[Rfam]
RNA sequence: GGAGUCGGCCAGGGCAAUCGCUGCUUGCGCAAGCAAGGGGAGGAAAGUCCGGGCUCCACAGGGCAGGGUGCCAGGUAACGCCUGGGAGGCGCGAGCCUACGACCAGUGCAACAGAGAGCAAACCGCCGAUGGCCCAGCUGUUUACAGUUGGGAUCAGGUAAGGGUGAAAGGGUGCGGUAAGAGCGCACCGCGCGACUGGUAACAGUUCGUGGCACGGUAAACUCCACCCGGAGCAAGAUCAAAUAGGCCCCCUAUGGCGCGGCCCGCGUUGGGGGCGGGUAGAUUGCUGGAGGCUUAGGGUGACCUAAGUCCUAGAGGAAUGAUUGCCACUCUGGCAACAGAGCACAGAACCCGGCUUACCGGCUGACUCCACAU
Number, nucleotide and partner (000 for none) at each position: 001g371002g370003a369004g368005u367006c366007g365008g364009c363010c362011a000012g360013g328014g327015c326016a325017a324018u323019c322020g000021c040022u039023g000024c037025u036026u035027g034028c033029g000030c000031a000032a000033g028034c027035a026036a025037g024038g000039g022040g021041a000042g000043g000044a000045a358046a357047g356048u000049c355050c354051g353052g352053g351054c233055u232056c231057c230058a000059c000060a000061g265062g264063g263064c262065a000066g229067g228068g227069u226070g225071c085072c084073a083074g082075g081076u000077a000078a000079c000080g000081c075082c074083u073084g072085g071086g100087a098088g097089g096090c095091g000092c000093g000094a000095g090096c089097c088098u087099a000100c086101g224102a223103c000104c000105a000106g222107u221108g218109c217110a000111a000112c000113a000114g000115a000116g000117a000118g000119c000120a000121a000122a000123c163124c162125g159126c158127c157128g000129a000130u156131g155132g154133c000134c152135c151136a000137g000138c000139u000140g000141u000142u000143u000144a000145c000146a000147g000148u000149u000150g000151g135152g134153a000154u132155c131156a130157g127158g126159u125160a000161a000162g124163g123164g000165u000166g000167a000168a000169a000170g000171g189172g188173u187174g186175c185176g184177g000178u000179a000180a000181g000182a000183g000184c176185g175186c174187a173188c172189c171190g213191c211192g210193c209194g208195a207196c205197u204198g203199g000200u000201a000202a000203c198204a197205g196206u000207u195208c194209g193210u192211g191212g000213c190214a000215c000216g000217g109218u108219a000220a000221a107222c106223u102224c101225c070226a069227c068228c067229c066230g057231g056232a055233g054234c000235a000236a000237g285238a284239u283240c282241a000242a000243a000244u000245a000246g000247g276248c275249c274250c273251c272252c271253u000254a000255u000256g270257g269258c268259g267260c266261g000262g064263c063264c062265c061266g260267c259268g258269u257270u256271g252272g251273g250274g249275g248276c247277g000278g000279g000280u000281a000282g240283a239284u238285u237286g000287c000288u000289g000290g000291a000292g311293g310294c309295u308296u307297a306298g305299g304300g000301u000302g000303a000304c299305c298306u297307a296308a295309g294310u293311c292312c000313u000314a000315g000316a000317g000318g000319a000320a000321u000322g019323a018324u017325u016326g015327c014328c013329a000330c000331u000332c000333u000334g000335g000336c000337a000338a000339c000340a000341g000342a000343g000344c000345a000346c000347a000348g000349a000350a000351c053352c052353c051354g050355g049356c047357u046358u045359a000360c012361c000362g010363g009364c008365u007366g006367a005368c004369u003370c002371c001372a000373c000374a000375u000
The record is a 375-nucleotide sequence from Alishewanella agri, which matches "Bacterial RNase P class A" in Rfam. Pairs were carried over by alignment from the consensus structure, which is taken from published work.